[Rfam]
Source information: The record is a 383-nucleotide RNA from Dictyobacter arantiisoli, which matches "Bacterial RNase P class A" in Rfam. Its family is annotated with tRNA processing, dimeric ribonuclease P complex and ribonuclease P activity in the Gene Ontology. The family's consensus secondary structure is taken from published work. Ribonuclease P (RNase P) is a ubiquitous endoribonuclease, found in archaea, bacteria and eukarya as well as chloroplasts and mitochondria.
Nucleotides: 383
Base pairs, nucleotide, nucleotide: 001379002378003377004376005375006374007373008372010370012325013324014323015322016321017320018319020038021037022036024034025033026032027031043367044366045365047364048363049362050361051360052214053213054212055211061258065210066209067208068207069206070084071083072082073081074080085099086097087096088095089094100205101204105203106202107199108198109197121146122145123142124141125140126139127138128137129136130135154172155171156170157169158168159167174194175192176191177190178189179188180187181186218282219281220280221279227273228272229271230270231269250264251263252262253261254260289308290307291306292305293304294303295302296301
Number, partner (000 for none) and nucleotide at each position: 001379u002378g003377a004376g005375g006374a007373a008372g009000a010370c011000u012325g013324g014323u015322a016321a017320u018319u019000g020038c021037g022036g023000u024034c025033c026032u027031c028000u029000u030000a031027g032026g033025g034024g035000u036022c037021c038020g039000a040000g041000g042000a043367a044366a045365g046000u047364c048363c049362g050361a051360a052214c053213u054212c055211c056000a057000u058000a059000g060000a061258g062000c063000g064000a065210a066209g067208a068207u069206g070084c071083u072082g073081g074080u075000u076000a077000a078000c079000g080074g081073c082072c083071a084070g085099u086097g087096a088095g089094g090000g091000u092000g093000a094089c095088c096087u097086c098000a099085a100205g101204g102000a103000a104000a105203g106202u107199g108198c109197a110000a111000c112000a113000g114000a115000a116000a117000c118000a119000u120000a121146c122145c123142g124141c125140c126139u127138g128137a129136g130135u131000g132000c133000a134000a135130a136129c137128u138127c139126a140125g141124g142123u143000a144000a145122g146121g147000g148000c149000g150000a151000a152000a153000u154172g155171g156170u157169g158168a159167g160000g161000u162000a163000a164000g165000a166000g167159c168158u169157c170156a171155c172154c173000a174194g175192c176191a177190a178189c179188c180187a181186g182000g183000u184000g185000a186181c187180u188179g189178g190177u191176u192175g193000g194174c195000u196000g197109u198108g199107c200000a201000a202106a203105c204101c205100c206069c207068a208067u209066c210065u211055g212054g213053a214052g215000c216000a217000a218282g219281a220280c221279u222000a223000a224000a225000c226000a227273g228272a229271a230270g231269g232000g233000a234000c235000a236000g237000g238000u239000c240000u241000u242000u243000g244000a245000c246000c247000u248000g249000g250264c251263g252262g253261g254260c255000u256000g257000c258061u259000c260254g261253u262252c263251u264250g265000u266000u267000a268000a269231c270230c271229u272228u273227c274000g275000g276000g277000u278000u279221g280220g281219u282218u283000g284000c285000u286000u287000g288000a289308g290307g291306c292305g293304a294303u295302a296301g297000g298000c299000a300000a301296c302295u303294a304293u305292c306291g307290u308289c309000c310000u311000a312000g313000a314000u315000a316000g317000a318000u319018g320017a321016u322015u323014a324013c325012c326000g327000c328000c329000u330000a331000u332000c333000c334000c335000g336000g337000c338000g339000u340000a341000a342000g343000c344000c345000u346000g347000g348000a349000u350000g351000g352000g353000u354000a355000c356000a357000g358000a359000a360051u361050u362049c363048g364047g365045c366044u367043u368000a369000c370010g371000g372008c373007u374006u375005c376004c377003u378002c379001a380000a381000a382000c383000c

The family's RNA type in Rfam is ribozyme.